[Rfam]
RNA sequence: UAGAUGGCGUUGAAGAGGAGGAGUACUCCGGAAUAGAACCAUGUAGAGAGAAGACGGCUGGUGAAAGUCUUUGGGAUAUUCGGAUGAAGCUGCCUUGGAGCUAUGGUGUGAAAGUGAUGAAUGCAUGCAUUCAUAACUAGGGUGGUACCGCGGAAGUGCAGCUUUCGUCCCUUGG
Numbered sequence: 001u002a003g004a005u006g007g008c009g010u011u012g013a014a015g016a017g018g019a020g021g022a023g024u025a026c027u028c029c030g031g032a033a034u035a036g037a038a039c040c041a042u043g044u045a046g047a048g049a050g051a052a053g054a055c056g057g058c059u060g061g062u063g064a065a066a067g068u069c070u071u072u073g074g075g076a077u078a079u080u081c082g083g084a085u086g087a088a089g090c091u092g093c094c095u096u097g098g099a100g101c102u103a104u105g106g107u108g109u110g111a112a113a114g115u116g117a118u119g120a121a122u123g124c125a126u127g128c129a130u131u132c133a134u135a136a137c138u139a140g141g142g143u144g145g146u147a148c149c150g151c152g153g154a155a156g157u158g159c160a161g162c163u164u165u166c167g168u169c170c171c172u173u174g175g
Stems, first nucleotide, its partner, number of pairs: 007101002015096004027084005039075002050072006117134007139172004150168007

The family of this 175-nucleotide RNA sequence from Proteiniclasticum ruminis is "T-box leader". Uncharged tRNA acts as the effector for transcription antitermination of genes in the T-box leader family. T-boxes are found upstream of many aminoacyl-tRNA synthetase genes and some amino acid biosynthetic genes usually in Gram-positive bacteria. The anticodon of a specific tRNA base pairs to a specifier sequence within the T-box motif, and the NCCA acceptor tail of the tRNA base pairs to a conserved bulge in the T-box antiterminator hairpin. Taxonomically the source falls in Proteiniclasticum (Bacteria, Clostridia, Eubacteriales, Clostridiaceae). It is annotated as a cis-regulatory leader. For this family Rfam cites "The GA motif: an RNA element common to bacterial antitermination systems, rRNA, and eukaryotic RNAs" (Winkler et al., RNA, 2001). Gene Ontology term of the family: tRNA binding.